[Rfam]
RNA: RAGATH-18 RNA
RNA sequence: CCCUCGGAGUGUUAUAUCAAACAAGAGUAGUCCGCAAGGACAAAAUUGGACACGAAGAACAGGGAA
Numbered sequence: 001c002c003c004u005c006g007g008a009g010u011g012u013u014a015u016a017u018c019a020a021a022c023a024a025g026a027g028u029a030g031u032c033c034g035c036a037a038g039g040a041c042a043a044a045a046u047u048g049g050a051c052a053c054g055a056a057g058a059a060c061a062g063g064g065a066a
Stems, first nucleotide, its partner, number of pairs: 001064004009053005022048003030041003